This 327-nucleotide RNA from Ornithobacterium rhinotracheale belongs to the Rfam family "Bacterial RNase P class A". The source organism's lineage runs through Bacteria, Pseudomonadati, Bacteroidota, Weeksellaceae and Ornithobacterium rhinotracheale. By type it is a ribozyme.
RNA sequence: UAAGUGAGCCGCCUUGUCGCGUGCCUGAGCGAGGGUACGAGGAAAGUCCGGACACCAUAGGGCGACGCAGCGGGUAACACCCGCCACUUGUUUUUCUUCGGAAGGGCAAGGAGGACUAGUGCAGCAGAAAGAAUGUACAGUACGGCUGUAGUGAAAUCAGGUAAACUCUGCGUGGUGCAAUGCUAUGUAUAUUGGCUGAUAAGGGCGGCUCGUCCGAUGCCAAGGGGUAAGCAGCUAGAGUUUAGCAGUAAUGCUAAAUGUAGAUAAAUGGCAAGGCGUUUCUCGUGAGAGAAAUGACAGAAUCCGGCUUAUAGGCUCACUUUCUUU
Numbered sequence: 001u002a003a004g005u006g007a008g009c010c011g012c013c014u015u016g017u018c019g020c021g022u023g024c025c026u027g028a029g030c031g032a033g034g035g036u037a038c039g040a041g042g043a044a045a046g047u048c049c050g051g052a053c054a055c056c057a058u059a060g061g062g063c064g065a066c067g068c069a070g071c072g073g074g075u076a077a078c079a080c081c082c083g084c085c086a087c088u089u090g091u092u093u094u095u096c097u098u099c100g101g102a103a104g105g106g107c108a109a110g111g112a113g114g115a116c117u118a119g120u121g122c123a124g125c126a127g128a129a130a131g132a133a134u135g136u137a138c139a140g141u142a143c144g145g146c147u148g149u150a151g152u153g154a155a156a157u158c159a160g161g162u163a164a165a166c167u168c169u170g171c172g173u174g175g176u177g178c179a180a181u182g183c184u185a186u187g188u189a190u191a192u193u194g195g196c197u198g199a200u201a202a203g204g205g206c207g208g209c210u211c212g213u214c215c216g217a218u219g220c221c222a223a224g225g226g227g228u229a230a231g232c233a234g235c236u237a238g239a240g241u242u243u244a245g246c247a248g249u250a251a252u253g254c255u256a257a258a259u260g261u262a263g264a265u266a267a268a269u270g271g272c273a274a275g276g277c278g279u280u281u282c283u284c285g286u287g288a289g290a291g292a293a294a295u296g297a298c299a300g301a302a303u304c305c306g307g308c309u310u311a312u313a314g315g316c317u318c319a320c321u322u323u324c325u326u327u
Stems, first nucleotide, its partner, number of pairs: 002322009011312001012276007020039007044310003048307005053177004060211004065173005070084005085113001087110010114168002119166002121162002181233004192223005203215004240259008